[Rfam]
RNA sequence: UCUUGGUAGGUCCCCCCCCGGUUUUCUAACCCUAUUUUCCCGUCGUUGGCGGUUUAGCGCGAUGUUCGGUGUUUUACUCGUUGGCUUUCACCGAACUCAAACGUUUCAAAAAACGUCAGCGUUAAAGGGGGGGGUCUUCCACCUGCCGGCCGGAGCGCCUUUCCUCUCCUAAAACCUCUCCCUUCACAUCGGAGGCCACCUGCCUGCCAAAUGAGGCCGCGGUCAGCCUGGCUCGAGAAGCUGCUGCCCUGAAGGGUUCGCCCCUGUCAGCCUCCGUGGCGGUGGGUCUGGCCUCGGGAGAGGCUUUCGGCUGGGGUGUGUGUAUGUGGCGGGCGCCAGAGCAAAAACGGGCGGCGUUGCUGUCGCACCCCGUUGCUGUCGCACCCCGCGCGCUUCUUGAGCUGUGAGGCGCGCGGCGGGGGUCGCCCGGACACCA
Numbered sequence: 001u002c003u004u005g006g007u008a009g010g011u012c013c014c015c016c017c018c019c020g021g022u023u024u025u026c027u028a029a030c031c032c033u034a035u036u037u038u039c040c041c042g043u044c045g046u047u048g049g050c051g052g053u054u055u056a057g058c059g060c061g062a063u064g065u066u067c068g069g070u071g072u073u074u075u076a077c078u079c080g081u082u083g084g085c086u087u088u089c090a091c092c093g094a095a096c097u098c099a100a101a102c103g104u105u106u107c108a109a110a111a112a113a114c115g116u117c118a119g120c121g122u123u124a125a126a127g128g129g130g131g132g133g134g135u136c137u138u139c140c141a142c143c144u145g146c147c148g149g150c151c152g153g154a155g156c157g158c159c160u161u162u163c164c165u166c167u168c169c170u171a172a173a174a175c176c177u178c179u180c181c182c183u184u185c186a187c188a189u190c191g192g193a194g195g196c197c198a199c200c201u202g203c204c205u206g207c208c209a210a211a212u213g214a215g216g217c218c219g220c221g222g223u224c225a226g227c228c229u230g231g232c233u234c235g236a237g238a239a240g241c242u243g244c245u246g247c248c249c250u251g252a253a254g255g256g257u258u259c260g261c262c263c264c265u266g267u268c269a270g271c272c273u274c275c276g277u278g279g280c281g282g283u284g285g286g287u288c289u290g291g292c293c294u295c296g297g298g299a300g301a302g303g304c305u306u307u308c309g310g311c312u313g314g315g316g317u318g319u320g321u322g323u324a325u326g327u328g329g330c331g332g333g334c335g336c337c338a339g340a341g342c343a344a345a346a347a348c349g350g351g352c353g354g355c356g357u358u359g360c361u362g363u364c365g366c367a368c369c370c371c372g373u374u375g376c377u378g379u380c381g382c383a384c385c386c387c388g389c390g391c392g393c394u395u396c397u398u399g400a401g402c403u404g405u406g407a408g409g410c411g412c413g414c415g416g417c418g419g420g421g422g423u424c425g426c427c428c429g430g431a432c433a434c435c436a
Stems, first nucleotide, its partner, number of pairs: 004141003008137006015131005053101003064096008080120006086113003147335002150332003175303008198287007206280004218251002221248002224246004253265004349428007357420002386416005393409004

Shown here is a 436-nucleotide RNA sequence from Pogona vitticeps, a member of the family "Vertebrate telomerase RNA". Rfam classes the family as a non-coding RNA gene. On this family, see Antal et al., Nucleic Acids Res 2002: "Analysis of the structure of human telomerase RNA in vivo". Its family is annotated with telomerase catalytic core complex, telomerase activity and telomere maintenance via telomerase in the Gene Ontology. The source organism's lineage runs through Eukaryota, Sarcopterygii, Tetrapoda, Amphibolurinae and Pogona. The family's consensus secondary structure is taken from published work. Rfam's curators write: Telomerase is a ribonucleoprotein reverse transcriptase that synthesises telomeric DNA. Telomerase RNAs differ greatly in sequence and structure between vertebrates, ciliates and yeasts, but they share a 5' pseudoknot structure close to the template sequence. Vertebrate telomerase RNAs have a 3' H/ACA snoRNA-like domain.